[Rfam]
RNA: Iron response element I
Organism: Octodon degus
RNA sequence: CAGCCUCCUGCUUCAGCAGUGCUUGAACGGAGCCC
Numbered sequence: 001c002a003g004c005c006u007c008c009u010g011c012u013u014c015a016g017c018a019g020u021g022c023u024u025g026a027a028c029g030g031a032g033c034c035c
Base pairs, nucleotide, nucleotide: 003033004032006031007030008029010028012027013026014025015024016023017021